[Rfam]
Nucleotides: 119
Stems, first nucleotide, its partner, number of pairs: 007038003012033005041074010083114011
Number, partner (000 for none) and nucleotide at each position: 001000g002000a003000g004000c005000u006000u007038c008037g009036c010000a011000a012033g013032g014031g015030u016029u017000u018000a019000c020000c021000u022000c023000c024000u025000c026000c027000c028000a029016a030015a031014c032013c033012c034000g035000c036009g037008c038007g039000a040000u041074u042073g043072a044071g045070g046069c047068u048067g049066g050065c051000a052000c053000c054000u055000c056000c057000u058000c059000c060000u061000c062000c063000c064000a065050g066049c067048c068047a069046g070045c071044c072043u073042u074041a075000c076000c077000c078000u079000a080000a081000c082000g083114a084113c085112a086111c087110c088109c089108g090107c091106c092105g093104c094000a095000c096000c097000u098000c099000c100000u101000c102000c103000c104093g105092c106091g107090g108089c109088g110087g111086g112085u113084g114083u115000u116000g117000u118000u119000u

The family of this 119-nucleotide RNA from Paramesorhizobium deserti is "Alphaproteobacterial ar14". Pairs were carried over by alignment from the consensus structure. From the family's description: Smr14C2 was renamed NfeR1 (Nodule Formation Efficiency RNA) highly expressed in salt stress and during the symbiotic interaction on legume roots.